[Rfam]
RNA: mir-7386 microRNA precursor family
Organism: Sarcophilus harrisii
RNA sequence: ACUCGGAUAAGGCACUCUAUUUUGUGAAUUCUAUCAAAAUAAAUUACCUUAUCCUUGGAG
Numbered sequence: 001a002c003u004c005g006g007a008u009a010a011g012g013c014a015c016u017c018u019a020u021u022u023u024g025u026g027a028a029u030u031c032u033a034u035c036a037a038a039a040u041a042a043a044u045u046a047c048c049u050u051a052u053c054c055u056u057g058g059a060g
Stems, first nucleotide, its partner, number of pairs: 002057001005054008018041007026034001